[Rfam]
Overview
Rfam assigns this 185-nucleotide RNA from Virgibacillus salinus to the family "FMN riboswitch aptamer (RFN element)".
RNA sequence: AUAUUCCUUCGGGGUCGGGUGAAAUUCCCAAUCGGCGGUGAUGAAGUGAAUACUUCUUAGUCCGUGACCCGUGCGGUUUUUAGCAGUUAGAAUUUUUUCUUAUUGCAUGGUGCAACUAAAACCAAGCGGUGGAUCUGGUGAAACUCCAGAGCCGACAGUUAUAGUCUGGAUGGGAGAAGGAAUUU
Numbered sequence: 001a002u003a004u005u006c007c008u009u010c011g012g013g014g015u016c017g018g019g020u021g022a023a024a025u026u027c028c029c030a031a032u033c034g035g036c037g038g039u040g041a042u043g044a045a046g047u048g049a050a051u052a053c054u055u056c057u058u059a060g061u062c063c064g065u066g067a068c069c070c071g072u073g074c075g076g077u078u079u080u081u082a083g084c085a086g087u088u089a090g091a092a093u094u095u096u097u098u099c100u101u102a103u104u105g106c107a108u109g110g111u112g113c114a115a116c117u118a119a120a121a122c123c124a125a126g127c128g129g130u131g132g133a134u135c136u137g138g139u140g141a142a143a144c145u146c147c148a149g150a151g152c153c154g155a156c157a158g159u160u161a162u163a164g165u166c167u168g169g170a171u172g173g174g175a176g177a178a179g180g181a182a183u184u185u
Stems, first nucleotide, its partner, number of pairs: 003183008017029003031165002033154002035065004060152002069129004134150005156168003
A search with the family's covariance model found it, with a score of 110 bits.